The record is an 84-nucleotide RNA sequence from Methylibium sp. NZG, which matches "SucA RNA motif" in Rfam. On this family, see Weinberg et al., Nucleic Acids Res 2007: "Identification of 22 candidate structured RNAs in bacteria using the CMfinder comparative genomics pipeline". Rfam links the family to the GO term regulation of translation.
RNA sequence: UCGCUAGUCCGCCAACCGGUCAAGCCGUGUCGCGGAAGGUUUUCAACCCAUCGGAGUGCCGGUUGCCGGCGCGAAAGGUGAGCG
Numbered sequence: 001u002c003g004c005u006a007g008u009c010c011g012c013c014a015a016c017c018g019g020u021c022a023a024g025c026c027g028u029g030u031c032g033c034g035g036a037a038g039g040u041u042u043u044c045a046a047c048c049c050a051u052c053g054g055a056g057u058g059c060c061g062g063u064u065g066c067c068g069g070c071g072c073g074a075a076a077g078g079u080g081a082g083c084g
Stems, first nucleotide, its partner, number of pairs: 002084003008036005017027004038048004049080004056072007